RNA sequence: CAUGGCUGGUGGCGCACUUCCCGUUAACGGGCAGUAUCGUCACGUCUGCAAUUUGCACACCGAUACCCGGCCCGCCAUGAGUGGGCUUUUUUUU
Numbered sequence: 001c002a003u004g005g006c007u008g009g010u011g012g013c014g015c016a017c018u019u020c021c022c023g024u025u026a027a028c029g030g031g032c033a034g035u036a037u038c039g040u041c042a043c044g045u046c047u048g049c050a051a052u053u054u055g056c057a058c059a060c061c062g063a064u065a066c067c068c069g070g071c072c073c074g075c076c077a078u079g080a081g082u083g084g085g086c087u088u089u090u091u092u093u094u
Base pairs, nucleotide, nucleotide: 009043010042011041012040014037016035017034018033020031021030022029023028069087070086071085072084073083074082075081

Tryptophan operon leader: a 94-nucleotide sequence from Serratia odorifera.
At least 6 amino acid operons are known to be regulated by attenuation. In each a leader sequence of 150-200 bp is found upstream of the first gene in the operon.
A search with the family's covariance model found it, with a score of 72 bits.
The organism belongs to Serratia odorifera, within Bacteria.
The literature on the family includes a 1982 paper in Annu Rev Genet by Kolter and Yanofsky, "Attenuation in amino acid biosynthetic operons".
It is annotated as a cis-regulatory leader.
Gene Ontology terms of the family: tryptophan biosynthetic process and transcriptional attenuation by ribosome.